[Rfam]
RNA sequence: AUGCCUUAAAUGCAUGAGUAAGGAAAAUAACAAUUCAGGAUGCUUACUGCUAAUGUGAGAUGAAUUCUUGAGUACAGGUUCCCCUAAGGUAGCCUGCCUUCUUUGCAGGAUGCUGGAUGUAGCAAUCUGCUCA
Numbered sequence: 001a002u003g004c005c006u007u008a009a010a011u012g013c014a015u016g017a018g019u020a021a022g023g024a025a026a027a028u029a030a031c032a033a034u035u036c037a038g039g040a041u042g043c044u045u046a047c048u049g050c051u052a053a054u055g056u057g058a059g060a061u062g063a064a065u066u067c068u069u070g071a072g073u074a075c076a077g078g079u080u081c082c083c084c085u086a087a088g089g090u091a092g093c094c095u096g097c098c099u100u101c102u103u104u105g106c107a108g109g110a111u112g113c114u115g116g117a118u119g120u121a122g123c124a125a126u127c128u129g130c131u132c133a
Stems, first nucleotide, its partner, number of pairs: 004023005033041003043059005069133005076128005082122001085117001088114004093109005
The record is a 133-nucleotide sequence from Jaculus jaculus, which matches "U12 minor spliceosomal RNA" in Rfam. Rfam links the family to the GO terms mRNA branch site recognition, U12 snRNP and pre-mRNA branch point binding. Pairs were carried over by alignment from the consensus structure. The literature on the family includes a 1997 paper in Trends Biochem Sci by Tarn and Steitz, "Pre-mRNA splicing: the discovery of a new spliceosome doubles the challenge". Taxonomically the source falls in Jaculus (Eukaryota, Bilateria, Chordata, Tetrapoda).